[Rfam]
RNA sequence: ACGUCCCGCCUCGUGAUCGUCUUCUCACCCUUCACGGCGGCGGGCGGAUGGGAGAAGACCCCCGUGAGGACGUGACUCACGGGGGUCUUCG
Numbered sequence: 001a002c003g004u005c006c007c008g009c010c011u012c013g014u015g016a017u018c019g020u021c022u023u024c025u026c027a028c029c030c031u032u033c034a035c036g037g038c039g040g041c042g043g044g045c046g047g048a049u050g051g052g053a054g055a056a057g058a059c060c061c062c063c064g065u066g067a068g069g070a071c072g073u074g075a076c077u078c079a080c081g082g083g084g085g086u087c088u089u090c091g
Stems, first nucleotide, its partner, number of pairs: 002046002005044006013035004019029001054090015
RNA: sodF sRNA